[Rfam]
RNA sequence: UAGCAUUUAGGAAGUGCUUAACUGGUUAAGAUCAAAAAAUCUGAAUUUAACUAGGUCGUCAUGAGUUUGCCAGUGGUAUAUACUUGCAAGCU
Number, nucleotide and partner (000 for none) at each position: 001u000002a018003g017004c016005a015006u014007u013008u012009a000010g000011g000012a008013a007014g006015u005016g004017c003018u002019u000020a000021a000022c000023u000024g052025g051026u050027u049028a048029a047030g046031a000032u044033c043034a042035a000036a000037a000038a000039a000040u000041c000042u034043g033044a032045a000046u030047u029048u028049a027050a026051c025052u024053a000054g000055g000056u000057c000058g000059u000060c000061a000062u000063g000064a000065g091066u090067u089068u088069g087070c086071c000072a000073g000074u000075g000076g000077u000078a000079u000080a000081u000082a000083c000084u000085u000086g070087c069088a068089a067090g066091c065092u000

The record is a 92-nucleotide RNA from Prochlorococcus marinus, which matches "Cyanobacterial functional RNA 20" in Rfam. On this family, see Steglich et al., PLoS Genet 2008: "The challenge of regulation in a minimal photoautotroph: non-coding RNAs in Prochlorococcus". The family's consensus secondary structure was predicted with mfold.